[Rfam]
RNA: tRNA
Organism: Halalkalibaculum roseum
RNA sequence: GGCGACAUGGCCGAGUGGUUAGGCAGAGGUCUGCAAAACCUCGUACGGCGGUUCGAAUCCGCCUGUCGCCU
Numbered sequence: 001g002g003c004g005a006c007a008u009g010g011c012c013g014a015g016u017g018g019u020u021a022g023g024c025a026g027a028g029g030u031c032u033g034c035a036a037a038a039c040c041u042c043g044u045a046c047g048g049c050g051g052u053u054c055g056a057a058u059c060c061g062c063c064u065g066u067c068g069c070c071u
Base pairs, nucleotide, nucleotide: 001070002069003068004067005066006065007064010024011023012022026042027041028040029039030038047063048062049061050060051059